The record is a 100-nucleotide RNA from Nannospalax galili, which matches "mir-3473 microRNA precursor family" in Rfam.
Lineage of the source: Eukaryota > Chordata > Dipnotetrapodomorpha > Amniota > Nannospalax.
Rfam 15.1 lists 1,094 matches to the family in 20 species.
It scores 78 bits against the family's covariance model.

RNA sequence: ACUGCUGAGCCAUCUCUCCAGCCCCUUAAAUAAAAUCUUUAAAAAAAAAGAUUGUUUUAAAAAUGGUAUUAUAUUGGAGCUGGAGAGAUGGCUCAGCAGU
Number, nucleotide and partner (000 for none) at each position: 001a000002c099003u098004g097005c096006u095007g094008a093009g092010c091011c090012a089013u088014c087015u086016c085017u084018c083019c082020a081021g080022c079023c000024c077025c000026u000027u000028a000029a000030a000031u000032a000033a000034a000035a000036u000037c000038u000039u000040u000041a000042a000043a000044a000045a000046a000047a000048a000049a000050g000051a000052u000053u000054g000055u000056u000057u000058u000059a000060a000061a000062a000063a000064u000065g000066g000067u000068a000069u000070u000071a000072u000073a000074u000075u000076g000077g024078a000079g022080c021081u020082g019083g018084a017085g016086a015087g014088a013089u012090g011091g010092c009093u008094c007095a006096g005097c004098a003099g002100u000